[Rfam]
RNA sequence: AUCUAAUGCUGGGGGCACUUGUUGCACAACUUCUUGAACCGCUCCCAGUACUCAUAGAGUGACUCCCCAGGGUGCUAUUUGAUCCCGCAAAUUUCUUUCCUUAGACU
Number, nucleotide and partner (000 for none) at each position: 001a107002u000003c000004u104005a102006a101007u000008g000009c000010u000011g000012g000013g000014g000015g000016c000017a000018c000019u000020u000021g000022u000023u000024g000025c000026a000027c000028a000029a000030c000031u000032u000033c000034u000035u000036g000037a000038a000039c000040c000041g000042c000043u000044c000045c000046c000047a000048g000049u000050a000051c000052u000053c000054a000055u000056a000057g000058a073059g000060u071061g000062a000063c000064u000065c000066c000067c000068c000069a000070g000071g060072g000073u058074g000075c000076u000077a000078u000079u000080u000081g000082a000083u000084c000085c000086c000087g000088c000089a000090a000091a000092u000093u000094u000095c000096u000097u000098u000099c000100c000101u006102u005103a000104g004105a000106c000107u001
The family of this 107-nucleotide sequence from Coffea canephora is "Plant small nucleolar RNA R71". A search with the family's covariance model found it, with a score of 45 bits. For this family Rfam cites "Plant snoRNAs: functional evolution and new modes of gene expression" (Brown et al., Trends Plant Sci, 2003). The family's RNA type in Rfam is C/D-box small nucleolar RNA.